[Rfam]
Source information:
A member of the RNA family "U11 spliceosomal RNA" from Catagonus wagneri, 134 nucleotides long. The family has 72 seed sequences and 2,595 matches in Rfam 15.1. Taxonomically the source falls in Catagonus (Eukaryota, Metazoa, Gnathostomata, Artiodactyla). The family's RNA type in Rfam is spliceosomal small nuclear RNA.

RNA sequence: AAAAAGCGCUUCUUUUGUAAGUGGCACACAUAGGGCAACUCACUUGCUCUGCAUAUGGAGUCGACACCAAGAGAUUUCAGAAGCAUAGUUUUUUGGUACCUGGGCAGCUGGUGAUAGUUGGUCCUGGCACCCCU
Numbered sequence: 001a002a003a004a005a006g007c008g009c010u011u012c013u014u015u016u017g018u019a020a021g022u023g024g025c026a027c028a029c030a031u032a033g034g035g036c037a038a039c040u041c042a043c044u045u046g047c048u049c050u051g052c053a054u055a056u057g058g059a060g061u062c063g064a065c066a067c068c069a070a071g072a073g074a075u076u077u078c079a080g081a082a083g084c085a086u087a088g089u090u091u092u093u094u095g096g097u098a099c100c101u102g103g104g105c106a107g108c109u110g111g112u113g114a115u116a117g118u119u120g121g122u123c124c125u126g127g128c129a130c131c132c133c134u
Stems, first nucleotide, its partner, number of pairs: 008084005013026001015024003028054001031051008056079007102132003107128005113123003